[Rfam]
Rfam assigns this 95-nucleotide RNA from Halobacteroides halobius to the family "Selenocysteine transfer RNA". The family has 109 seed sequences and 4,211 matches in Rfam 15.1. It scores 66 bits against the family's covariance model.

RNA sequence: GGGAAUGGCUGUAUCCAUGGUGGAUACCCUGGACUUCAAAUCCAGUGGCAGGCAGCUUUAGUUGUCUGUGGUGGGUUCGAUUCCCACAUAUUCCC
Numbered sequence: 001g002g003g004a005a006u007g008g009c010u011g012u013a014u015c016c017a018u019g020g021u022g023g024a025u026a027c028c029c030u031g032g033a034c035u036u037c038a039a040a041u042c043c044a045g046u047g048g049c050a051g052g053c054a055g056c057u058u059u060a061g062u063u064g065u066c067u068g069u070g071g072u073g074g075g076u077u078c079g080a081u082u083c084c085c086a087c088a089u090a091u092u093c094c095c
Stems, first nucleotide, its partner, number of pairs: 001095007008087001011027006029045005048069007072086004